A member of the RNA family "ROOL RNA", 573 nucleotides long. Rfam's curators write: Firmicutes, Fusobacteria (1 example), Tenericutes (1 example).

RNA sequence: GAACAAUGUAUAAACUAUGACCAACUCAGUGCAGAGGGUACACACUGCUGAGAUGGGCGAUUAAGGAAUGGCGAAGAGGGAUACCUUUAGCAUAUGCCUUUUGACCGUAGGCGACUCGGUCUUGAAGAGAUUAAUUUCUCAACAAUCGUUUAGUGCAAUAAUUGAAUAGGAAUAAGACAGUAAGUGAAAGGGCGAGACAAUAGACGCUCUCUGUGAGAGAAUAACCCUAGAUGGUCGGCUGAUGUGGUAGUCAGUGACGGACAAAGGGAAUACCAAUAACUCGUUUAGCAGUGAUGCUGGGUUUCCAGCUAUAACUUUUGCUUAUGUACCAGUAGCCGAAUCUGCUAUAGAUAAAGAAAAUAAUGGAGCAGAACUCCUUUUAAUUUAAAUUUUUCUGAAAGUCGGUGAAAGUUGUGGGUCACAGUCCCAUAUGGUUUUAGGUCAAUGCUUCGGUAUUGAUGGUAUAAGAAGCCUAGGAGUCGCUCUCCUUUGCUCAGACUUGUAUCACUAUUAGUCUAAUAAUUUGGUUCAAUUGUUUGUAAGGGGAAACCUUGGUCGUGAUUUAUAGUUCUU
Numbered sequence: 001g002a003a004c005a006a007u008g009u010a011u012a013a014a015c016u017a018u019g020a021c022c023a024a025c026u027c028a029g030u031g032c033a034g035a036g037g038g039u040a041c042a043c044a045c046u047g048c049u050g051a052g053a054u055g056g057g058c059g060a061u062u063a064a065g066g067a068a069u070g071g072c073g074a075a076g077a078g079g080g081a082u083a084c085c086u087u088u089a090g091c092a093u094a095u096g097c098c099u100u101u102u103g104a105c106c107g108u109a110g111g112c113g114a115c116u117c118g119g120u121c122u123u124g125a126a127g128a129g130a131u132u133a134a135u136u137u138c139u140c141a142a143c144a145a146u147c148g149u150u151u152a153g154u155g156c157a158a159u160a161a162u163u164g165a166a167u168a169g170g171a172a173u174a175a176g177a178c179a180g181u182a183a184g185u186g187a188a189a190g191g192g193c194g195a196g197a198c199a200a201u202a203g204a205c206g207c208u209c210u211c212u213g214u215g216a217g218a219g220a221a222u223a224a225c226c227c228u229a230g231a232u233g234g235u236c237g238g239c240u241g242a243u244g245u246g247g248u249a250g251u252c253a254g255u256g257a258c259g260g261a262c263a264a265a266g267g268g269a270a271u272a273c274c275a276a277u278a279a280c281u282c283g284u285u286u287a288g289c290a291g292u293g294a295u296g297c298u299g300g301g302u303u304u305c306c307a308g309c310u311a312u313a314a315c316u317u318u319u320g321c322u323u324a325u326g327u328a329c330c331a332g333u334a335g336c337c338g339a340a341u342c343u344g345c346u347a348u349a350g351a352u353a354a355a356g357a358a359a360a361u362a363a364u365g366g367a368g369c370a371g372a373a374c375u376c377c378u379u380u381u382a383a384u385u386u387a388a389a390u391u392u393u394u395c396u397g398a399a400a401g402u403c404g405g406u407g408a409a410a411g412u413u414g415u416g417g418g419u420c421a422c423a424g425u426c427c428c429a430u431a432u433g434g435u436u437u438u439a440g441g442u443c444a445a446u447g448c449u450u451c452g453g454u455a456u457u458g459a460u461g462g463u464a465u466a467a468g469a470a471g472c473c474u475a476g477g478a479g480u481c482g483c484u485c486u487c488c489u490u491u492g493c494u495c496a497g498a499c500u501u502g503u504a505u506c507a508c509u510a511u512u513a514g515u516c517u518a519a520u521a522a523u524u525u526g527g528u529u530c531a532a533u534u535g536u537u538u539g540u541a542a543g544g545g546g547a548a549a550c551c552u553u554g555g556u557c558g559u560g561a562u563u564u565a566u567a568g569u570u571c572u573u
Stems, first nucleotide, its partner, number of pairs: 008569002013564002016561001022555001025052005037045001054152006064099003068095002071091002074088002077086003100124001103121005109116002127140004161534001163532001166529001171525002180325011191285006207219004225268004236259002239256001240253003245275004286347005296309005329411001335406005394498004417428002431511003442458001461508001462506001467501002471494001475489005542553004